[Rfam]
RNA sequence: UCCUUGGAGACCAAGUGUGGGUGUGGCCUGUGAUACUGUCUUGGCGACCCAUCCUUGGUUUCCGAGGCUU
Numbered sequence: 001u002c003c004u005u006g007g008a009g010a011c012c013a014a015g016u017g018u019g020g021g022u023g024u025g026g027c028c029u030g031u032g033a034u035a036c037u038g039u040c041u042u043g044g045c046g047a048c049c050c051a052u053c054c055u056u057g058g059u060u061u062c063c064g065a066g067g068c069u070u
Stems, first nucleotide, its partner, number of pairs: 002067004007062006014055002019050004026045003
Description: A member of the RNA family "mir-551 microRNA precursor family" from Chanos chanos, 70 nucleotides long. The base pairs follow the family's consensus structure, which was predicted with RNAalifold. It scores 59 bits against the family's covariance model. The literature on the family includes a 2008 paper in Gene by Shao et al., "Identification of novel chicken microRNAs and analysis of their genomic organization". The organism belongs to Chanos, within Eukaryota.